The record is a 285-nucleotide RNA from Athelia sp. TMB, which matches "Group I catalytic intron" in Rfam.
Lineage of the source: Eukaryota > Basidiomycota > Agaricomycotina > Agaricomycetes > Athelia.
RNA sequence: AUAAUGCCCCAAAUAGAUUUGUUUAACUAAACACUAUUUGGAAAUUGGGUGAAUUGCAAGAAAAGCCAAUCUGAUUCUUUAAAGAUUGGUCAAUUUGCAGCUUAUCAUAUUACGAUAUACUUAUUCCCUCCUUAAUAUAUUAUAGGGAUUUAGUUGUAAUAUGCGAGUUCAAAGACUAACGGGUGAGUAGUAUCAAACAAUAAUCCCGACACGAGCGCCCAACAUAUAAAUUAAAUUAAAAUAAAUUAUAUGAUGACAUAGUCUGACCCCUAUAGUAAUAUAGGG
Dot-bracket structure: ............................................[[[[.[[...((((((....((((((((..........))))))))...))))))((...((....((..(((.....................................)))..))...))))...(.(((((.....................................]].]]]]..(((((.(((........))).)))))........)))))).....(((((....)))))..

About the family: Group I catalytic introns are large self-splicing ribozymes. Rfam links the family to the GO term Group I intron splicing. The match comes from Rfam's covariance-model search (73 bits). The literature on the family includes a 1996 paper in Science by Cate et al., "Crystal structure of a group I ribozyme domain: principles of RNA packing".